This 91-nucleotide RNA from Diceros bicornis belongs to the Rfam family "mir-1178 microRNA precursor family". The base pairs follow the family's consensus structure, which was predicted with RNAalifold. Its family is annotated with RISC complex and miRNA-mediated post-transcriptional gene silencing in the Gene Ontology.
[Rfam]
RNA sequence: GGGUUGGCUGGCGGAGGAAGGGAAUGGUCCAGGAUCAGCCCGGCGUGUCUUCAGGUGGUUCACUGCUUUUCCCUAGAAUGUCAGGUGAUGU
Numbered sequence: 001g002g003g004u005u006g007g008c009u010g011g012c013g014g015a016g017g018a019a020g021g022g023a024a025u026g027g028u029c030c031a032g033g034a035u036c037a038g039c040c041c042g043g044c045g046u047g048u049c050u051u052c053a054g055g056u057g058g059u060u061c062a063c064u065g066c067u068u069u070u071c072c073c074u075a076g077a078a079u080g081u082c083a084g085g086u087g088a089u090g091u
Base pairs, nucleotide, nucleotide: 003089004088005087006086008084009083010082011081012080013079019074020073021072022071023070024069026067027066032061033060034059035058037056039054042051043050